Fluoride riboswitch aptamer (crcB RNA motif): a 71-nucleotide RNA from Sphingobium wenxiniae.
The family's consensus secondary structure is taken from published work.
The organism belongs to Sphingobium wenxiniae, within Bacteria.
It scores 42 bits against the family's covariance model.

RNA sequence: GGCAUCAACGGCGAUGGAUUUCCGCCUGGCUUCGGCCGAACCGCCUCGGGGUUGAUGAUUCCUACCUGCUG
Numbered sequence: 001g002g003c004a005u006c007a008a009c010g011g012c013g014a015u016g017g018a019u020u021u022c023c024g025c026c027u028g029g030c031u032u033c034g035g036c037c038g039a040a041c042c043g044c045c046u047c048g049g050g051g052u053u054g055a056u057g058a059u060u061c062c063u064a065c066c067u068g069c070u071g
Stems, first nucleotide, its partner, number of pairs: 010026004016062003020058002043052003